This 93-nucleotide RNA sequence from Bacillus solimangrovi belongs to the Rfam family "Selenocysteine transfer RNA".
For this family Rfam cites "Eukaryotic selenocysteine tRNA has the 9/4 secondary structure" (Mizutani and Goto, FEBS Lett, 2000).
The match comes from Rfam's covariance-model search (64 bits).

RNA sequence: GGGGCUGGUUGGGUUGCUGGUGCACUCCGCGGUCUUCAAAACCGUCUGGGAGGCGCGUGCCGUCUUCGGUGGGUUCGAUUCCCAUACAGUCCC
Numbered sequence: 001g002g003g004g005c006u007g008g009u010u011g012g013g014u015u016g017c018u019g020g021u022g023c024a025c026u027c028c029g030c031g032g033u034c035u036u037c038a039a040a041a042c043c044g045u046c047u048g049g050g051a052g053g054c055g056c057g058u059g060c061c062g063u064c065u066u067c068g069g070u071g072g073g074u075u076c077g078a079u080u081c082c083c084a085u086a087c088a089g090u091c092c093c
Stems, first nucleotide, its partner, number of pairs: 001093007012027002015024003029045005049067005070084004